Rfam assigns this 73-nucleotide sequence from Natrinema limicola to the family "eL15-Euryarchaeota ribosomal protein leader".
It is one of the family's seed sequences.
The literature on the family includes a 2020 paper in BMC Microbiol by Eckert and Weinberg, "Discovery of 20 novel ribosomal leader candidates in bacteria and archaea".
NCBI's taxonomy places the organism under Archaea, Methanobacteriota, Halobacteria, Natrialbaceae, Natrinema limicola.
[Rfam]
RNA sequence: CCUGCACGGUACCGGGCCGCAGGUCGGGAUGUGAUCCGCGGGGCAUGUGCCCCGGUCGGGAUUGAACCAGGAA
Numbered sequence: 001c002c003u004g005c006a007c008g009g010u011a012c013c014g015g016g017c018c019g020c021a022g023g024u025c026g027g028g029a030u031g032u033g034a035u036c037c038g039c040g041g042g043g044c045a046u047g048u049g050c051c052c053c054g055g056u057c058g059g060g061a062u063u064g065a066a067c068c069a070g071g072a073a
Stems, first nucleotide, its partner, number of pairs: 001023005026068002033063005